[Rfam]
RNA sequence: UGGACAGAUUAUUUUAUUCAAUUGUAUUCGAGUGUAUUCACAACGUGAAAUAGGGUAUUAGACUGUUUUUAAAACAGAAAGCGAAUCAAUUAACAUAAUAGACUCCU
Numbered sequence: 001u002g003g004a005c006a007g008a009u010u011a012u013u014u015u016a017u018u019c020a021a022u023u024g025u026a027u028u029c030g031a032g033u034g035u036a037u038u039c040a041c042a043a044c045g046u047g048a049a050a051u052a053g054g055g056u057a058u059u060a061g062a063c064u065g066u067u068u069u070u071a072a073a074a075c076a077g078a079a080a081g082c083g084a085a086u087c088a089a090u091u092a093a094c095a096u097a098a099u100a101g102a103c104u105c106c107u
Base pairs, nucleotide, nucleotide: 002106003105004104009101010100011099012098013097015095017093018092020091021090023088024087036086037085038084039083041081045075046074047069048068049067050066051065052064053063
A member of the RNA family "MIR6152 microRNA precursor family" from Nicotiana sylvestris, 107 nucleotides long. Taxonomically the source falls in Nicotiana (Eukaryota, Streptophyta, Embryophyta, asterids).